[Rfam]
RNA sequence: UGGUGCCCCAAUGUGGGGCCCGAGAACAGGGGAACUAGUGAAGGAUGCUGUUUGAGAAGCUGGCACAAAAACAGAACAGAGAAAAUUCCAAGAACAGAGGAAAAGACUAUGCAGGAAACUGCUGCAGUCUCUAAACCUCGGUAAGUGAACACCAGUUAUGGGGCAACAAAUGAGCCAACAUGAGAUUUUUGUUGAAAGUUUAGGAAAGGCUUUAAAGGCACGGGGAGAAAAAGUUAAAAUUAAGCAGUUAUGUUAUUUUGAUUAUAUAAAAAAAGUUUGUUCCU
Numbered sequence: 001u002g003g004u005g006c007c008c009c010a011a012u013g014u015g016g017g018g019c020c021c022g023a024g025a026a027c028a029g030g031g032g033a034a035c036u037a038g039u040g041a042a043g044g045a046u047g048c049u050g051u052u053u054g055a056g057a058a059g060c061u062g063g064c065a066c067a068a069a070a071a072c073a074g075a076a077c078a079g080a081g082a083a084a085a086u087u088c089c090a091a092g093a094a095c096a097g098a099g100g101a102a103a104a105g106a107c108u109a110u111g112c113a114g115g116a117a118a119c120u121g122c123u124g125c126a127g128u129c130u131c132u133a134a135a136c137c138u139c140g141g142u143a144a145g146u147g148a149a150c151a152c153c154a155g156u157u158a159u160g161g162g163g164c165a166a167c168a169a170a171u172g173a174g175c176c177a178a179c180a181u182g183a184g185a186u187u188u189u190u191g192u193u194g195a196a197a198g199u200u201u202a203g204g205a206a207a208g209g210c211u212u213u214a215a216a217g218g219c220a221c222g223g224g225g226a227g228a229a230a231a232a233g234u235u236a237a238a239a240u241u242a243a244g245c246a247g248u249u250a251u252g253u254u255a256u257u258u259u260g261a262u263u264a265u266a267u268a269a270a271a272a273a274a275g276u277u278u279g280u281u282c283c284u
Base pairs, nucleotide, nucleotide: 006032007031008030013027014026037051040048095141097139099137100136105132106130110126111125112124113123114122146165147164150162152161153160154159171214172213173212174210175209176208221260222259223258224257225256227254228253231249232248234246269284272281273280